[Rfam]
RNA sequence: UAGUUUUGUCCUAAGUCAAAACUUAUUAUCUAACUUUGACAAAUUUACUAAAAAAUAUUAAAAUCUACAAUAUCAAAUAAAUGGACAAUCAAUAUUAACAUGACGUAUCUAAUGAAAGUAGCUUGAUGUUGUAGAUAUUUGUAUAUCUUUCUAUAACUUUGGUCAAAGUAAGAGAAGUUUGACUUAAAACAAAACUAG
Dot-bracket structure: ....(((((..((((((((.((((.((.......(((((......((..(((.(.(((.((.(((((((...((((.(..........................................).))))...))))))).)).)))..).))).)).........)))))....)).))))))))))))..))))).....
The record is a 198-nucleotide RNA from Setaria viridis, which matches "MIR1435 microRNA precursor family" in Rfam. A search with the family's covariance model found it, with a score of 94 bits.